[Rfam]
RNA sequence: CAAAAAAAAUCCUCGCAAGGAAUUCCCUGCGAGGUGCCCAUACACAUACAUUGUAUGUAAUGAGGCUAUGGGAGAGGAGAAACCGGAGGAAGAACUUAUGGGGAAACGUAAGCCUUCUCCGCGG
Numbered sequence: 001c002a003a004a005a006a007a008a009a010u011c012c013u014c015g016c017a018a019g020g021a022a023u024u025c026c027c028u029g030c031g032a033g034g035u036g037c038c039c040a041u042a043c044a045c046a047u048a049c050a051u052u053g054u055a056u057g058u059a060a061u062g063a064g065g066c067u068a069u070g071g072g073a074g075a076g077g078a079g080a081a082a083c084c085g086g087a088g089g090a091a092g093a094a095c096u097u098a099u100g101g102g103g104a105a106a107c108g109u110a111a112g113c114c115u116u117c118u119c120c121g122c123g124g
Base pairs, nucleotide, nucleotide: 011034012033013032014031015030016029017028019026037072038071039070040069041068047059048058049057050056051055084121085120086119087118089117090116091115092114095112096111097110098109
This 124-nucleotide RNA from Halalkalibacter krulwichiae belongs to the Rfam family "ylbH leader".
Rfam describes the family as follows. This family is a putative regulatory RNA structure that is found upstream of the ylbH gene in B. subtilis and related low GC Gram-positive bacteria.
For this family Rfam cites "New RNA motifs suggest an expanded scope for riboswitches in bacterial genetic control" (Barrick et al., Proc Natl Acad Sci U S A, 2004).
A search with the family's covariance model found it, with a score of 87 bits.